[Rfam]
RNA sequence: AUGUCGGCCGCUCCUCGCCCUCCUCGGGCGCGAGCAGGGCCUGCUCGCCGAAGAAGUCGCCGUCGGCGAGGGUGCCGAGGACCGCGUCGGCCCCGUACUCGCCCGCACCGAUCCUGCUCAGCUUGCCGUGCGCCACCAGGAUGACCCGGUCGACCGGCCGGCCGCGCUCCACGAUGACGUCGCCGGGCUCGUACUCCUGCUGGGUGAACCGGCCGGCGAUGGCGUCCAGCGUCAGGUCGUCGUCGUAGCCGCGCAGCGGGGGCAGCUCGCCCAGCUCGCGGGGGAUGACCCGGACGUCGGCGCCGGUGGUCACGAAGGUGACCCGGCCGUCGCCGAGGGUGUAGGUGAGGCGCCGGUUGACGCGGUAGGCGCCGCCGGCCGCCUGGACCCAGGGGAGCAGUUUCAGCAGCCACCGGGAGGUGAUGCCCUGCAUCUGCGGGACGGACUUGGUCGUGGUCGCCAGAUUGCGCGCCGCCGCGGUACCGAGGCUCAACUGCUGUUGCUGCUGUUCGG
Numbered sequence: 001a002u003g004u005c006g007g008c009c010g011c012u013c014c015u016c017g018c019c020c021u022c023c024u025c026g027g028g029c030g031c032g033a034g035c036a037g038g039g040c041c042u043g044c045u046c047g048c049c050g051a052a053g054a055a056g057u058c059g060c061c062g063u064c065g066g067c068g069a070g071g072g073u074g075c076c077g078a079g080g081a082c083c084g085c086g087u088c089g090g091c092c093c094c095g096u097a098c099u100c101g102c103c104c105g106c107a108c109c110g111a112u113c114c115u116g117c118u119c120a121g122c123u124u125g126c127c128g129u130g131c132g133c134c135a136c137c138a139g140g141a142u143g144a145c146c147c148g149g150u151c152g153a154c155c156g157g158c159c160g161g162c163c164g165c166g167c168u169c170c171a172c173g174a175u176g177a178c179g180u181c182g183c184c185g186g187g188c189u190c191g192u193a194c195u196c197c198u199g200c201u202g203g204g205u206g207a208a209c210c211g212g213c214c215g216g217c218g219a220u221g222g223c224g225u226c227c228a229g230c231g232u233c234a235g236g237u238c239g240u241c242g243u244c245g246u247a248g249c250c251g252c253g254c255a256g257c258g259g260g261g262g263c264a265g266c267u268c269g270c271c272c273a274g275c276u277c278g279c280g281g282g283g284g285a286u287g288a289c290c291c292g293g294a295c296g297u298c299g300g301c302g303c304c305g306g307u308g309g310u311c312a313c314g315a316a317g318g319u320g321a322c323c324c325g326g327c328c329g330u331c332g333c334c335g336a337g338g339g340u341g342u343a344g345g346u347g348a349g350g351c352g353c354c355g356g357u358u359g360a361c362g363c364g365g366u367a368g369g370c371g372c373c374g375c376c377g378g379c380c381g382c383c384u385g386g387a388c389c390c391a392g393g394g395g396a397g398c399a400g401u402u403u404c405a406g407c408a409g410c411c412a413c414c415g416g417g418a419g420g421u422g423a424u425g426c427c428c429u430g431c432a433u434c435u436g437c438g439g440g441a442c443g444g445a446c447u448u449g450g451u452c453g454u455g456g457u458c459g460c461c462a463g464a465u466u467g468c469g470c471g472c473c474g475c476c477g478c479g480g481u482a483c484c485g486a487g488g489c490u491c492a493a494c495u496g497c498u499g500u501u502g503c504u505g506c507u508g509u510u511c512g513g
Stems, first nucleotide, its partner, number of pairs: 003388002005385003009381002014326001017323001019320001021318002024315002032311002035308002040306002046302006053230001057228001059226001061224003064110003074102001076101004081096002084093001118219002122215001126211001128209002133203003138198003143194001147191002152188001154186005163173002231295003239289006249281005255276003259270001261268001328341004351377002354374003361369001390430005396424001398422002402417003406414001436475004442469002445466001447463005476512002479507003483499001485497001486495002
The family of this 513-nucleotide sequence from Actinomadura meyerae is "Saccharopolyspora sRNA 350".
Rfam links the family to the GO term regulation of secondary metabolite biosynthetic process.
The source organism's lineage runs through Bacteria, Actinomycetes, Streptosporangiales, Thermomonosporaceae and Actinomadura.